[Rfam]
RNA: Small nucleolar RNA Z278
RNA sequence: GCCUAUGAUGAUAUAAUCCAAUUUGUUUGAGGUGUAGUGGAGCCAUGUCCCUGUUUAUCAGGGAGAACCUACUUGGUAGAAGCUACACUACGAUGAUAUUAAUGGAUUUAACUGAGGU
Numbered sequence: 001g002c003c004u005a006u007g008a009u010g011a012u013a014u015a016a017u018c019c020a021a022u023u024u025g026u027u028u029g030a031g032g033u034g035u036a037g038u039g040g041a042g043c044c045a046u047g048u049c050c051c052u053g054u055u056u057a058u059c060a061g062g063g064a065g066a067a068c069c070u071a072c073u074u075g076g077u078a079g080a081a082g083c084u085a086c087a088c089u090a091c092g093a094u095g096a097u098a099u100u101a102a103u104g105g106a107u108u109u110a111a112c113u114g115a116g117g118u
Stems, first nucleotide, its partner, number of pairs: 001118003049063005